[Rfam]
RNA: Group II catalytic intron D1-D4-3
RNA sequence: AAACCAGUGAUGGAGCGUGAAAAGAAGUAAUAGCGAAAUAGUGGCCCAACGAACAGAAACUUGAUAAUGAGGCCCAUUAGGCGGAUAAGUUGGCAAGACACAACAAAGUCCAAAAGGCAAUCGUAACCCUAAUCGGUAAAUCAAGUGGGUAAACUAGGAAAGAUUUAU
Numbered sequence: 001a002a003a004c005c006a007g008u009g010a011u012g013g014a015g016c017g018u019g020a021a022a023a024g025a026a027g028u029a030a031u032a033g034c035g036a037a038a039u040a041g042u043g044g045c046c047c048a049a050c051g052a053a054c055a056g057a058a059a060c061u062u063g064a065u066a067a068u069g070a071g072g073c074c075c076a077u078u079a080g081g082c083g084g085a086u087a088a089g090u091u092g093g094c095a096a097g098a099c100a101c102a103a104c105a106a107a108g109u110c111c112a113a114a115a116g117g118c119a120a121u122c123g124u125a126a127c128c129c130u131a132a133u134c135g136g137u138a139a140a141u142c143a144a145g146u147g148g149g150u151a152a153a154c155u156a157g158g159a160a161a162g163a164u165u166u167a168u
Stems, first nucleotide, its partner, number of pairs: 004013003029168001034162001039156004044150005060145006072137003076133006083111004089104004